[Rfam]
RNA: Rhodo-rpoB RNA
Organism: Lutimaribacter saemankumensis
RNA sequence: GGAUCGGGAGGGCGUUGGUGGGACAAUGCCCGGGAAUUGAUCCAGAACCCCCUGUUUCGGAUGGGCGCAUGACCGGGGCCCGACGGUCGUGACG
Numbered sequence: 001g002g003a004u005c006g007g008g009a010g011g012g013c014g015u016u017g018g019u020g021g022g023a024c025a026a027u028g029c030c031c032g033g034g035a036a037u038u039g040a041u042c043c044a045g046a047a048c049c050c051c052c053u054g055u056u057u058c059g060g061a062u063g064g065g066c067g068c069a070u071g072a073c074c075g076g077g078g079c080c081c082g083a084c085g086g087u088c089g090u091g092a093c094g
Base pairs, nucleotide, nucleotide: 001043002042003041004040005039010031011030012029013028014027015026016025017024066094067093071088072087073086074085075084